The family of this 83-nucleotide RNA sequence is "Glutamine riboswitch aptamer (glnA leader)". For this family Rfam cites "Bacterial aptamers that selectively bind glutamine" (Ames and Breaker, RNA Biol, 2011). Gene Ontology term of the family: glutamine binding.
RNA sequence: AUCGUUCAUCUCUCAAAUGAGACGGAAGUAGUUGGAAUAAUUAUCCAACUCGGGGAGGAUAAUCUCCAACGAAGGAACGCACC
Numbered sequence: 001a002u003c004g005u006u007c008a009u010c011u012c013u014c015a016a017a018u019g020a021g022a023c024g025g026a027a028g029u030a031g032u033u034g035g036a037a038u039a040a041u042u043a044u045c046c047a048a049c050u051c052g053g054g055g056a057g058g059a060u061a062a063u064c065u066c067c068a069a070c071g072a073a074g075g076a077a078c079g080c081a082c083c
Stems, first nucleotide, its partner, number of pairs: 003079005009022004025080001031070006